[Rfam]
Shown here is a 67-nucleotide RNA from Pipistrellus kuhlii, a member of the family "mir-9256 microRNA precursor family".
RNA sequence: AUAUACACUGAGUGGCCAGAUUAUUAUGCUCUCAUAGAUCAUAAUAAUCUGUCCACUCAGUGUAUUU
Numbered sequence: 001a002u003a004u005a006c007a008c009u010g011a012g013u014g015g016c017c018a019g020a021u022u023a024u025u026a027u028g029c030u031c032u033c034a035u036a037g038a039u040c041a042u043a044a045u046a047a048u049c050u051g052u053c054c055a056c057u058c059a060g061u062g063u064a065u066u067u
Stems, first nucleotide, its partner, number of pairs: 004064012017051001019049010
Lineage of the source: Eukaryota > Bilateria > Euteleostomi > Mammalia > Pipistrellus.